[Rfam]
RNA: Group II catalytic intron D1-D4-4
Organism: Anaeromicropila populeti
RNA sequence: CAGUCGGUGCAAGUCCGACUGAGGUAAUCGCCAGUGAGCCGUAUAGUCAAACUCGGUGCGUUGCAGUAGUGCAGGGUGCUAAGCGAGUGGGUAUUGUAACUUCAAAAGAAGUGCUAACAAUCAUGCAGACCGUAACAUAA
Numbered sequence: 001c002a003g004u005c006g007g008u009g010c011a012a013g014u015c016c017g018a019c020u021g022a023g024g025u026a027a028u029c030g031c032c033a034g035u036g037a038g039c040c041g042u043a044u045a046g047u048c049a050a051a052c053u054c055g056g057u058g059c060g061u062u063g064c065a066g067u068a069g070u071g072c073a074g075g076g077u078g079c080u081a082a083g084c085g086a087g088u089g090g091g092u093a094u095u096g097u098a099a100c101u102u103c104a105a106a107a108g109a110a111g112u113g114c115u116a117a118c119a120a121u122c123a124u125g126c127a128g129a130c131c132g133u134a135a136c137a138u139a140a
Stems, first nucleotide, its partner, number of pairs: 020043002023040002051088004055080005064071002096114002099112004117133002